[Rfam]
RNA sequence: UUAUAAUAAACGCCUAAUCUGGGGUAUCCUAGAGCGGGGGACUAAAUUUCUGGGGUGAAUCGCACCUCCUGUGCGUAGGGCUUACACUUUCGCCCGAAUCCGUCAACUAACCCCGUAGGCUAAGAAAGGUGUCUGA
Numbered sequence: 001u002u003a004u005a006a007u008a009a010a011c012g013c014c015u016a017a018u019c020u021g022g023g024g025u026a027u028c029c030u031a032g033a034g035c036g037g038g039g040g041a042c043u044a045a046a047u048u049u050c051u052g053g054g055g056u057g058a059a060u061c062g063c064a065c066c067u068c069c070u071g072u073g074c075g076u077a078g079g080g081c082u083u084a085c086a087c088u089u090u091c092g093c094c095c096g097a098a099u100c101c102g103u104c105a106a107c108u109a110a111c112c113c114c115g116u117a118g119g120c121u122a123a124g125a126a127a128g129g130u131g132u133c134u135g136a
Base pairs, nucleotide, nucleotide: 012120013119014118018033019032020031021030022029034116035115036114037113038112039111043052044051053101054100055099061075062074063073064072078095079094080093081092
The record is a 136-nucleotide sequence from Desulfitobacterium hafniense, which matches "c-di-AMP riboswitch aptamer (ydaO/yuaA leader)" in Rfam. The source organism's lineage runs through Bacteria, Bacillati, Desulfitobacteriaceae, Desulfitobacterium and Desulfitobacterium hafniense. Rfam's curators put it in the seed alignment.